[Rfam]
RNA sequence: CUUACCUUCGGUGAUGGAUUUCCACCGUGAACCGCCAAGGCCCCGGCUUUGAGCUAAUGAUUCCUACGCCACC
Numbered sequence: 001c002u003u004a005c006c007u008u009c010g011g012u013g014a015u016g017g018a019u020u021u022c023c024a025c026c027g028u029g030a031a032c033c034g035c036c037a038a039g040g041c042c043c044c045g046g047c048u049u050u051g052a053g054c055u056a057a058u059g060a061u062u063c064c065u066a067c068g069c070c071a072c073c
Base pairs, nucleotide, nucleotide: 010026011025012024013023016064017063018062020060021059034054035053